The family of this 93-nucleotide RNA from Thermovirga lienii is "Selenocysteine transfer RNA". Taxonomically the source falls in Thermovirga lienii (Bacteria, Synergistia, Thermovirgaceae, Thermovirga). The base pairs follow the family's consensus structure, which is taken from published work.

RNA sequence: GGAGGCGAACGGUGACUGGUGUUGCCCACGGGCUUCAAACCCGUUGAGAGUCUGUAAAGCAGGCUCUGGUGGGUUCGAUUCCCACACGCCUCC
Numbered sequence: 001g002g003a004g005g006c007g008a009a010c011g012g013u014g015a016c017u018g019g020u021g022u023u024g025c026c027c028a029c030g031g032g033c034u035u036c037a038a039a040c041c042c043g044u045u046g047a048g049a050g051u052c053u054g055u056a057a058a059g060c061a062g063g064c065u066c067u068g069g070u071g072g073g074u075u076c077g078a079u080u081c082c083c084a085c086a087c088g089c090c091u092c093c
Stems, first nucleotide, its partner, number of pairs: 001093007011026006028044005047067005070084004